[Rfam]
RNA sequence: UGUAUCCUUGAAUGGAUUUUUGGAGCAGGAGUGGACACCUGACCCAAAGGAAAUCAAUCCAUAGGCUAGCAAU
Numbered sequence: 001u002g003u004a005u006c007c008u009u010g011a012a013u014g015g016a017u018u019u020u021u022g023g024a025g026c027a028g029g030a031g032u033g034g035a036c037a038c039c040u041g042a043c044c045c046a047a048a049g050g051a052a053a054u055c056a057a058u059c060c061a062u063a064g065g066c067u068a069g070c071a072a073u
Base pairs, nucleotide, nucleotide: 001071002070003069006065007064008063012062013061014060015059016058017057018056019048020047021046022045023044026041027040028039029038